Shown here is a 74-nucleotide sequence from Paenactinomyces guangxiensis, a member of the family "tRNA". Pairs were carried over by alignment from the consensus structure, which is taken from published work. The organism belongs to Paenactinomyces, within Bacteria. Transfer RNA (tRNA) molecules are approximately 80 nucleotides in length. Their secondary structure includes four short double-helical elements and three loops (D, anti-codon, and T loops). Further hydrogen bonds mediate the characteristic L-shaped molecular structure. tRNAs have two regions of fundamental functional importance: the anti-codon, which is responsible for specific mRNA codon recognition, and the 3' end, to which the tRNAs corresponding amino acid is attached (by aminoacyl-tRNA synthetases). tRNAs cope with the degeneracy of the genetic code in two manners: having more than one tRNA (with a specific anti-codon) for a particular amino acid; and 'wobble' base-pairing, i.e. permitting non-standard base-pairing at the 3rd anti-codon position. Its family is annotated with triplet codon-amino acid adaptor activity in the Gene Ontology.
RNA sequence: GCGCCCGUAGCUCAGCAGGAUAGAGCAAUGGUUUCCUAAACCAUGUGUCAGAGGUUCGAGUCCUCUCGGGCGCG
Numbered sequence: 001g002c003g004c005c006c007g008u009a010g011c012u013c014a015g016c017a018g019g020a021u022a023g024a025g026c027a028a029u030g031g032u033u034u035c036c037u038a039a040a041c042c043a044u045g046u047g048u049c050a051g052a053g054g055u056u057c058g059a060g061u062c063c064u065c066u067c068g069g070g071c072g073c074g
Stems, first nucleotide, its partner, number of pairs: 001073007010026004028044005050066005
A reference for the family is Hou (1993), "The tertiary structure of tRNA and the development of the genetic code", Trends Biochem Sci.